RNA: c-di-AMP riboswitch aptamer (ydaO/yuaA leader)
Organism: Parafrankia flexibilis
RNA sequence: CCGGGUGGCAUGCCGAAUCCCGCCUCGCCUGGUGUUCAACAGAUCUGAGGGUGGGAGCGGGGGACCCGGGUUCCCGGGCGUUGUGGGUGGGCGUCCUAUCCGGGGUGAAGCCGCCGGUCGUGAUCUGGUGCGUGGUUACCGGGCUUUUUGCAGUCCGAACCCGACCGCUGACUUCGUAGGCGUGAGGAAGGGACAAU
Numbered sequence: 001c002c003g004g005g006u007g008g009c010a011u012g013c014c015g016a017a018u019c020c021c022g023c024c025u026c027g028c029c030u031g032g033u034g035u036u037c038a039a040c041a042g043a044u045c046u047g048a049g050g051g052u053g054g055g056a057g058c059g060g061g062g063g064a065c066c067c068g069g070g071u072u073c074c075c076g077g078g079c080g081u082u083g084u085g086g087g088u089g090g091g092c093g094u095c096c097u098a099u100c101c102g103g104g105g106u107g108a109a110g111c112c113g114c115c116g117g118u119c120g121u122g123a124u125c126u127g128g129u130g131c132g133u134g135g136u137u138a139c140c141g142g143g144c145u146u147u148u149u150g151c152a153g154u155c156c157g158a159a160c161c162c163g164a165c166c167g168c169u170g171a172c173u174u175c176g177u178a179g180g181c182g183u184g185a186g187g188a189a190g191g192g193a194c195a196a197u
Base pairs, nucleotide, nucleotide: 011182012181013180014179018056019055020054021053022052023051024050025049057177058176059175060174061173062172067102068101069100070099071098103162104161105160111135112134113133114132141156142155143154144153